[Rfam]
RNA sequence: GGUGUGCGAUAGACUUACCUCCAUGUGGUGCACACUGGGCAACGUAUGCUCAUAUGGCGAAAAAGUCUUA
Dot-bracket structure: (((((((.........(((.......))))))))))......(((((....)))))..............
Numbered sequence: 001g002g003u004g005u006g007c008g009a010u011a012g013a014c015u016u017a018c019c020u021c022c023a024u025g026u027g028g029u030g031c032a033c034a035c036u037g038g039g040c041a042a043c044g045u046a047u048g049c050u051c052a053u054a055u056g057g058c059g060a061a062a063a064a065g066u067c068u069u070a
Stems, first nucleotide, its partner, number of pairs: 001036007017029003043056005
HDV ribozyme from F. prausnitzii: a 70-nucleotide RNA from Rodentolepis nana. Pairs were carried over by alignment from the consensus structure, which is taken from published work. For this family Rfam cites "Widespread occurrence of self-cleaving ribozymes" (Webb et al., Science, 2009). Lineage of the source: Eukaryota > Opisthokonta > Bilateria > Spiralia > Rodentolepis. Rfam links the family to the GO term catalytic activity.